[Rfam]
RNA sequence: GGCCCAAACUUGGAGUAGAAUAGUUGGGUAUGGUCAGCCGAUCCUACUAAUCUACUCUACUUCAAGUUUGUUCAA
Numbered sequence: 001g002g003c004c005c006a007a008a009c010u011u012g013g014a015g016u017a018g019a020a021u022a023g024u025u026g027g028g029u030a031u032g033g034u035c036a037g038c039c040g041a042u043c044c045u046a047c048u049a050a051u052c053u054a055c056u057c058u059a060c061u062u063c064a065a066g067u068u069u070g071u072u073c074a075a
Base pairs, nucleotide, nucleotide: 002073005070006069007068008067009066011064012063013062014061015060016059017058018057019056021054022053023052025050027048028047029046030045032043033042034041035040